[Rfam]
RNA sequence: GGGUGCCUAGCUCAGCUAAGGCAGGUGUUUGUUGUAGUCGGGCCGCUACAA
Numbered sequence: 001g002g003g004u005g006c007c008u009a010g011c012u013c014a015g016c017u018a019a020g021g022c023a024g025g026u027g028u029u030u031g032u033u034g035u036a037g038u039c040g041g042g043c044c045g046c047u048a049c050a051a
Stems, first nucleotide, its partner, number of pairs: 005022003008018003032051007
The family of this 51-nucleotide RNA from Acinetobacter baumannii is "nhaA-I RNA".
Rfam's curators put it in the seed alignment.
NCBI's taxonomy places the organism under Bacteria, Pseudomonadota, Acinetobacter, Acinetobacter calcoaceticus/baumannii complex, Acinetobacter baumannii.